[Rfam]
RNA: c-di-AMP riboswitch aptamer (ydaO/yuaA leader)
RNA sequence: CAAGAACGACAACAGAUUCAGGAGUGAGGACGGGGAACCCAAUCCCUUCGGCAACGAAGAUCGGAUCUUCACGGAAGUGAUCUCAUUUCUGUAAAGGUCCUCGGGGUGUAGCCCUUGCGACAGCAGGGCCGAGCAACCUCUCGCUCGAACCCGACAGCUCACUUCGUAGGCGCGUGGAGAGAGGGAAA
Numbered sequence: 001c002a003a004g005a006a007c008g009a010c011a012a013c014a015g016a017u018u019c020a021g022g023a024g025u026g027a028g029g030a031c032g033g034g035g036a037a038c039c040c041a042a043u044c045c046c047u048u049c050g051g052c053a054a055c056g057a058a059g060a061u062c063g064g065a066u067c068u069u070c071a072c073g074g075a076a077g078u079g080a081u082c083u084c085a086u087u088u089c090u091g092u093a094a095a096g097g098u099c100c101u102c103g104g105g106g107u108g109u110a111g112c113c114c115u116u117g118c119g120a121c122a123g124c125a126g127g128g129c130c131g132a133g134c135a136a137c138c139u140c141u142c143g144c145u146c147g148a149a150c151c152c153g154a155c156a157g158c159u160c161a162c163u164u165c166g167u168a169g170g171c172g173c174g175u176g177g178a179g180a181g182a183g184g185g186a187a188a
Base pairs, nucleotide, nucleotide: 001169030167031166032165033164034163035162040103104152105151106150112128113127114126115125131146132145133144134143